[Rfam]
RNA sequence: CCGAUCGCCUUUUGAGGGAUCGGCCGGUCAAGCCGACAUCGGUGAGACCUCGGAAUGACCGAUUUGUGCCCAUGUUGCUCAAUGGAGGAUGUGGUUAUGAGAA
Numbered sequence: 001c002c003g004a005u006c007g008c009c010u011u012u013u014g015a016g017g018g019a020u021c022g023g024c025c026g027g028u029c030a031a032g033c034c035g036a037c038a039u040c041g042g043u044g045a046g047a048c049c050u051c052g053g054a055a056u057g058a059c060c061g062a063u064u065u066g067u068g069c070c071c072a073u074g075u076u077g078c079u080c081a082a083u084g085g086a087g088g089a090u091g092u093g094g095u096u097a098u099g100a101g102a103a
Base pairs, nucleotide, nucleotide: 001023002022003021004020005019006018008017009016063101064100065099066098067097068096070094071093072092073091074090075089076088078087079086080085
RNA: Repression of heat shock gene expression (ROSE) element
Organism: Allobosea sp. Root381